[Rfam]
RNA sequence: AAUAAAUGUAUAUAUUGUACAUAAAUCUGUAUUUGUAUAUAUUAUAUAUAAACUUAGUUGAGAUUAGUAGUGAUAUAUAGUUAUCUACCUCAAGUAAACACUACACUCAAUGCACACAGCACUUU
Numbered sequence: 001a002a003u004a005a006a007u008g009u010a011u012a013u014a015u016u017g018u019a020c021a022u023a024a025a026u027c028u029g030u031a032u033u034u035g036u037a038u039a040u041a042u043u044a045u046a047u048a049u050a051a052a053c054u055u056a057g058u059u060g061a062g063a064u065u066a067g068u069a070g071u072g073a074u075a076u077a078u079a080g081u082u083a084u085c086u087a088c089c090u091c092a093a094g095u096a097a098a099c100a101c102u103a104c105a106c107u108c109a110a111u112g113c114a115c116a117c118a119g120c121a122c123u124u125u
Stems, first nucleotide, its partner, number of pairs: 006042008057111006065103004070099002081097001083095001085094002
Shown here is a 125-nucleotide sequence from Orthopestivirus bovis, a member of the family "Pestivirus 3' UTR SLIV and SLII bovine viral diarrhea virus (BVDV-1)". The source organism's lineage runs through Viruses, Riboviria, Pestiviridae, Orthopestivirus and Bovine viral diarrhea virus isolates and strains. Pairs were carried over by alignment from the consensus structure. Its Rfam clan is "Pestivirus 3'UTR without 3'UTR-SL1". It is one of the family's seed sequences.